[Rfam]
Record summary: Shown here is a 114-nucleotide RNA sequence from Aegilops tauschii, a member of the family "Plastid-psbA-1 3UTR RNA". Lineage of the source: Eukaryota > Streptophyta > Poaceae > Triticeae > Aegilops tauschii. The match comes from Rfam's covariance-model search (56 bits). A reference for the family is Richter et al. (2023), "Retrograde signaling in plants: A critical review focusing on the GUN pathway and beyond", Plant Commun. The family's consensus secondary structure was predicted with LocARNA.

RNA sequence: UCGAAGAGGCAAGGCCUCCUGCCUGGGACCUCCUAACUACUCCUGGUCUUGAAGAAAGAAAAGACAGAAAUACCCAAUAUCUUGUUCUAGCAAGAUAUUGGGUAUUUCUGUCUU
Numbered sequence: 001u002c003g004a005a006g007a008g009g010c011a012a013g014g015c016c017u018c019c020u021g022c023c024u025g026g027g028a029c030c031u032c033c034u035a036a037c038u039a040c041u042c043c044u045g046g047u048c049u050u051g052a053a054g055a056a057a058g059a060a061a062a063g064a065c066a067g068a069a070a071u072a073c074c075c076a077a078u079a080u081c082u083u084g085u086u087c088u089a090g091c092a093a094g095a096u097a098u099u100g101g102g103u104a105u106u107u108c109u110g111u112c113u114u
Base pairs, nucleotide, nucleotide: 008023009022010021011020061114062113063112064111065110066109067108068107069106070105071104072103073102075100076099077098079096080095081094082093083092